Rfam assigns this 85-nucleotide RNA from Handroanthus impetiginosus to the family "Small nucleolar RNA R16". Rfam links the family to the GO terms nucleolus and RNA processing. By type it is a C/D-box small nucleolar RNA. The source organism's lineage runs through Eukaryota, asterids, lamiids, Tabebuia alliance and Handroanthus. Pairs were carried over by alignment from the consensus structure, which was predicted with PFOLD.

[Rfam]
RNA sequence: CAUGGCAGAUGAGGAAUUUUAAAUCUUAUCCUACACACUGAUUAUCUGUGUUGACUAUAUACUCCGCUUAUUAUCUGAUGCCGUU
Numbered sequence: 001c002a003u004g005g006c007a008g009a010u011g012a013g014g015a016a017u018u019u020u021a022a023a024u025c026u027u028a029u030c031c032u033a034c035a036c037a038c039u040g041a042u043u044a045u046c047u048g049u050g051u052u053g054a055c056u057a058u059a060u061a062c063u064c065c066g067c068u069u070a071u072u073a074u075c076u077g078a079u080g081c082c083g084u085u
Base pairs, nucleotide, nucleotide: 003083004082005081006080007079
Overview:
For this family Rfam cites "Experimental RNomics: identification of 140 candidates for small non-messenger RNAs in the plant Arabidopsis thaliana" (Marker et al., Curr Biol, 2002).